Rfam assigns this 86-nucleotide RNA sequence from Spiribacter salilacus to the family "t44 RNA". Lineage of the source: Bacteria > Pseudomonadota > Chromatiales > Ectothiorhodospiraceae > Spiribacter. Rfam's curators write: This family consists of a number of bacterial RNA genes of between 135 and 170 bases in length. The t44 gene has been identified in several species of enteric bacteria but homologs have also been identified in Pseudomonas and Coxiella species. The t44 gene is found between the map and rpsB genes in all species in the full alignment apart from Shigella flexneri. The function of this RNA is unknown. A search with the family's covariance model found it, with a score of 67 bits. The family's consensus secondary structure was predicted with LocARNA.

RNA sequence: GGCAAUGAAAUAUCAAUCCACACAUGCACCGACACGGUCGGCGGGGUGCCCUAGGGUUGCCGGCUGCGGGUGUAUGGAGGCUUAAC
Numbered sequence: 001g002g003c004a005a006u007g008a009a010a011u012a013u014c015a016a017u018c019c020a021c022a023c024a025u026g027c028a029c030c031g032a033c034a035c036g037g038u039c040g041g042c043g044g045g046g047u048g049c050c051c052u053a054g055g056g057u058u059g060c061c062g063g064c065u066g067c068g069g070g071u072g073u074a075u076g077g078a079g080g081c082u083u084a085a086c
Stems, first nucleotide, its partner, number of pairs: 023076008035066009048057003